[Rfam]
RNA: mir-395 microRNA precursor family
Organism: Ensete ventricosum
RNA sequence: AUGUCAUCGGGAGUUCCUUCAAACCACUUCGGUAGGUGUCAAUGUUAAGCCUCGGGUAUAAACAUCAGCCCUAACUGAAGUGUUUGGGGGAACUCUGGAUGCCAU
Numbered sequence: 001a002u003g004u005c006a007u008c009g010g011g012a013g014u015u016c017c018u019u020c021a022a023a024c025c026a027c028u029u030c031g032g033u034a035g036g037u038g039u040c041a042a043u044g045u046u047a048a049g050c051c052u053c054g055g056g057u058a059u060a061a062a063c064a065u066c067a068g069c070c071c072u073a074a075c076u077g078a079a080g081u082g083u084u085u086g087g088g089g090g091a092a093c094u095c096u097g098g099a100u101g102c103c104a105u
Stems, first nucleotide, its partner, number of pairs: 005101004011095010022085002025082009035072002